Record summary
Rfam assigns this 66-nucleotide RNA from Nannospalax galili to the family "Selenocysteine insertion sequence 1". The family's RNA type in Rfam is cis-regulatory element. Lineage of the source: Eukaryota > Craniata > Boreoeutheria > Spalacinae > Nannospalax. A reference for the family is Walczak et al. (1996), "A novel RNA structural motif in the selenocysteine insertion element of eukaryotic selenoprotein mRNAs", RNA. The base pairs follow the family's consensus structure, which is taken from published work.
RNA sequence: CCGGCACUCAUGAAGGUCUACCUGCAAACCAGUGUGCUGGUGGGGCAGACCUGAGGAACCAGCGUG
Number, nucleotide and partner (000 for none) at each position: 001c066002c000003g000004g063005c062006a000007c000008u000009c000010a000011u000012g000013a000014a000015g051016g050017u049018c048019u047020a000021c045022c044023u043024g000025c000026a000027a000028a000029c000030c039031a038032g037033u000034g000035u000036g000037c032038u031039g030040g000041u000042g000043g023044g022045g021046c000047a019048g018049a017050c016051c015052u000053g000054a000055g000056g000057a000058a000059c000060c000061a000062g005063c004064g000065u000066g001